[Rfam]
RNA sequence: AGAUAGCAAUAUUUUGCUAUUCCCGGUCAAUAACACAAUAACACGUGGAAAAGUAAUCCCACGUGUCAUUGUGUUAUUAGUCUGAGAUAGCAAAAAGUACUAUUC
Numbered sequence: 001a002g003a004u005a006g007c008a009a010u011a012u013u014u015u016g017c018u019a020u021u022c023c024c025g026g027u028c029a030a031u032a033a034c035a036c037a038a039u040a041a042c043a044c045g046u047g048g049a050a051a052a053g054u055a056a057u058c059c060c061a062c063g064u065g066u067c068a069u070u071g072u073g074u075u076a077u078u079a080g081u082c083u084g085a086g087a088u089a090g091c092a093a094a095a096a097g098u099a100c101u102a103u104u105c
Base pairs, nucleotide, nucleotide: 002104003103004102005101012095013094014093015092016091017090018089019088020087023084025082026081027080029078030077031076032075033074034073035072036071037070038069039068041066042065043064044063045062046061047060048059050057